[Rfam]
RNA sequence: UUGACCAACAAAUGAGAAGCGUUAUUAUUUGAAAACUGAUCGCGAGAUCAGCGGUAAACUGACAGAGCGGCUACUCUUCAGGUUAUCUCCUCAUCAGGCUAAUUACGGUUUUCGACCCGGCGCUGCCGGGUCUUUUUUUG
Dot-bracket structure: ...................................((((((....)))))).......((((.((.(...)..)).).))).......(((....)))...............((((((((...))))))))........
Numbered sequence: 001u002u003g004a005c006c007a008a009c010a011a012a013u014g015a016g017a018a019g020c021g022u023u024a025u026u027a028u029u030u031g032a033a034a035a036c037u038g039a040u041c042g043c044g045a046g047a048u049c050a051g052c053g054g055u056a057a058a059c060u061g062a063c064a065g066a067g068c069g070g071c072u073a074c075u076c077u078u079c080a081g082g083u084u085a086u087c088u089c090c091u092c093a094u095c096a097g098g099c100u101a102a103u104u105a106c107g108g109u110u111u112u113c114g115a116c117c118c119g120g121c122g123c124u125g126c127c128g129g130g131u132c133u134u135u136u137u138u139u140g
Stems, first nucleotide, its partner, number of pairs: 036051006059081003062077001064075002067071001089098003114132008